[Rfam]
RNA: Tombus virus defective interfering (DI) RNA region 3
RNA sequence: AGCUAGUAGGACAGACUCUUCAGUCUAGGUUGGUGGAAGCAGGAGAACACUGCUUGAGGGUACAGGUUU
Numbered sequence: 001a002g003c004u005a006g007u008a009g010g011a012c013a014g015a016c017u018c019u020u021c022a023g024u025c026u027a028g029g030u031u032g033g034u035g036g037a038a039g040c041a042g043g044a045g046a047a048c049a050c051u052g053c054u055u056g057a058g059g060g061u062a063c064a065g066g067u068u069u
Base pairs, nucleotide, nucleotide: 011034012033014031015030016029017028049067050065051064052063